[Rfam]
RNA: RNA anti-toxin A
Organism: Listeria fleischmannii
RNA sequence: UUGUUUGAAUAAAAAAGGGAUAUGCGCCAACAUAUCCCCGUACAGAGCCGUUAAAGACGGUGACUGUUUCUAAUUUUGAUCAA
Numbered sequence: 001u002u003g004u005u006u007g008a009a010u011a012a013a014a015a016a017g018g019g020a021u022a023u024g025c026g027c028c029a030a031c032a033u034a035u036c037c038c039c040g041u042a043c044a045g046a047g048c049c050g051u052u053a054a055a056g057a058c059g060g061u062g063a064c065u066g067u068u069u070c071u072a073a074u075u076u077u078g079a080u081c082a083a
Base pairs, nucleotide, nucleotide: 021034022033023032024031047061048060049059050058051057052056